[Rfam]
RNA sequence: CGCAAGUCGGGUCGAUUUGCUCCUCCGAAUCCCCCAGGUGCGGAAGCAAGCAAGGGUAAGGAGUUGAGCGAUGCGUUCCCGGCUUGUUUUU
Numbered sequence: 001c002g003c004a005a006g007u008c009g010g011g012u013c014g015a016u017u018u019g020c021u022c023c024u025c026c027g028a029a030u031c032c033c034c035c036a037g038g039u040g041c042g043g044a045a046g047c048a049a050g051c052a053a054g055g056g057u058a059a060g061g062a063g064u065u066g067a068g069c070g071a072u073g074c075g076u077u078c079c080c081g082g083c084u085u086g087u088u089u090u091u
Stems, first nucleotide, its partner, number of pairs: 004085005009079003013075002017071006023063004031056003039048003